[Rfam]
RNA sequence: ACACAGUCACCAACGAACACUCAUGGAUGGAGGCGGGGGACCCACCGGUCCACCGAACAGACGGACCUGGAGCCGAAUUCGGCUCCUUGGGGUGAAGCCGGCGUCGUUCCGACGCCGCCGGCCGGGCAACCUCUCCAGCCCGAACCCGACAGCUGACCUCGCGGGCGCAGAAGAGAGGACAU
Dot-bracket structure: .......(.((.....................((((((....((...........................................))(((.....((((((............))))))..((((..........))))...))).........)))))).)).)...............
Shown here is a 182-nucleotide RNA sequence from Mycolicibacterium rhodesiae, a member of the family "c-di-AMP riboswitch aptamer (ydaO/yuaA leader)". Its family is annotated with regulation of gene expression and cyclic-di-AMP binding in the Gene Ontology.